Rfam assigns this 75-nucleotide RNA from Saimiri boliviensis to the family "Small nucleolar RNA SNORD113/SNORD114 family". The family is grouped with related families in Rfam's "SNORD74 clan". The family's RNA type in Rfam is C/D-box small nucleolar RNA. The family's consensus secondary structure is taken from published work.

[Rfam]
RNA sequence: CGGACCAAUGAUGACAACUGGUGGCGUAUGAGUCAUGGAUGAUGAAUAAUACGUGUCUGGAAGUCUGAGGUCUGG
Numbered sequence: 001c002g003g004a005c006c007a008a009u010g011a012u013g014a015c016a017a018c019u020g021g022u023g024g025c026g027u028a029u030g031a032g033u034c035a036u037g038g039a040u041g042a043u044g045a046a047u048a049a050u051a052c053g054u055g056u057c058u059g060g061a062a063g064u065c066u067g068a069g070g071u072c073u074g075g
Stems, first nucleotide, its partner, number of pairs: 002073005
Background
Rfam 15.1 lists 5,721 matches to the family in 142 species. About the family: The imprinted human domain at 14q32 contains two clusters of tandemly repeated small nucleolar RNAs named 14q(I) and 14q(II) snoRNAs. These two clusters are named SNORD113 and SNORD114 respectively in the HGNC approved gene symbol nomenclature. A reference for the family is Cavaille et al. (2002), "Identification of tandemly-repeated C/D snoRNA genes at the imprinted human 14q32 domain reminiscent of those at the Prader-Willi/Angelman syndrome region", Hum Mol Genet.